The record is a 198-nucleotide sequence from Paenibacillus arenilitoris, which matches "c-di-AMP riboswitch aptamer (ydaO/yuaA leader)" in Rfam. On this family, see Barrick et al., Proc Natl Acad Sci U S A 2004: "New RNA motifs suggest an expanded scope for riboswitches in bacterial genetic control".
RNA sequence: UGAAUCAAGCAGCCGAAUUUCCGAAGGAAAACGGGGGAACCAUAAAGCUGUCGCAAACCGAUGUAACGGUAGAUAUCAAUUCCGUUAAUAUGCGGCGGCAAGGGGUGAAUUUCCGCUCACAAACGAAAGAGCGGGAUAGGGCCGCCUGUCCAGGCCCGAAUCCGUCAGCUAACCUCGUAGGCGCCAGUGGAACAGGAC
Dot-bracket structure: ...........(((...(((.......)))((((((....(............................................................)(((.....((((((((..........))))))))..((((...........))))...))).........)))))).)))................
Taxonomically the source falls in Paenibacillus (Bacteria, Bacillota, Bacilli, Paenibacillaceae).